[Rfam]
RNA: Bacterial RNase P class A
Organism: Gloeomargaritaceae cyanobacterium C42_A2020_066
Nucleotides: 364
Base pairs, nucleotide, nucleotide: 001360002359003358004357005356006355007354008353012321013320014319015318016317017316018315020052021051022050023049024048025047026046027045057348058347059346061345062344063343064342065341066230067229068228069227074256079225080224081223082222083221084098085097086096087095088094099113100111101110102109103108114220115219119218120217121214122213123212135161136160137157138156139155142152144150169187170186171185172184173183174182189209190207191206192205193204194203195202196201234278235277236276240267241266242265243264244263247261248260251257285304286303287302288301289300290299291298292297
Number, partner (000 for none) and nucleotide at each position: 001360g002359g003358a004357g005356u006355u007354g008353g009000u010000g011000a012321g013320g014319u015318g016317g017316u018315u019000g020052c021051g022050g023049g024048u025047u026046u027045g028000g029000g030000u031000g032000g033000c034000g035000c036000a037000a038000g039000c040000u041000g042000c043000c044000g045027c046026a047025g048024a049023c050022c051021u052020g053000a054000g055000g056000a057348a058347a059346g060000u061345c062344c063343g064342g065341g066230c067229u068228u069227c070000c071000a072000a073000g074256g075000a076000u077000c078000a079225g080224g081223c082222c083221g084098c085097u086096g087095g088094g089000u090000a091000a092000c093000g094088c095087c096086c097085a098084g099113u100111a101110c102109g103108g104000g105000u106000g107000a108103c109102c110101g111100u112000g113099a114220g115219g116000a117000a118000a119218g120217u121214g122213c123212c124000a125000c126000a127000g128000a129000a130000a131000c132000a133000u134000a135161c136160c137157g138156c139155c140000a141000a142152g143000g144150c145000g146000c147000g148000a149000g150144g151000a152142u153000c154000a155139g156138g157137c158000a159000a160136g161135g162000g163000u164000g165000a166000a167000a168000c169187g170186g171185u172184g173183c174182g175000g176000u177000a178000a179000g180000a181000g182174c183173g184172c185171a186170c187169c188000a189209g190207c191206a192205a193204c194203a195202u196201c197000g198000a199000g200000a201196g202195g203194u204193g205192u206191u207190g208000g209189c210000u211000c212123g213122g214121u215000a216000a217120a218119c219115c220114c221083c222082g223081g224080u225079u226000g227069g228068a229067a230066g231000c232000a233000a234278g235277g236276u237000g238000g239000a240267g241266g242265g243264g244263c245000c246000a247261g248260g249000u250000u251257g252000a253000u254000c255000c256074u257251u258000u259000u260248c261247c262000a263244g264243c265242c266241u267240c268000g269000a270000c271000u272000a273000a274000g275000a276236g277235c278234c279000g280000c281000u282000u283000g284000a285304g286303g287302c288301a289300u290299u291298c292297g293000g294000u295000a296000a297292c298291g299290g300289a301288u302287g303286u304285c305000c306000c307000a308000g309000a310000u311000a312000g313000a314000u315018a316017a317016c318015c319014g320013c321012c322000c323000c324000c325000c326000g327000c328000a329000a330000g331000g332000g333000g334000a335000a336000c337000a338000g339000a340000a341065c342064c343063c344062g345061g346059c347058u348057u349000a350000c351000g352000u353008c354007c355006a356005a357004c358003u359002c360001c361000g362000u363000c364000c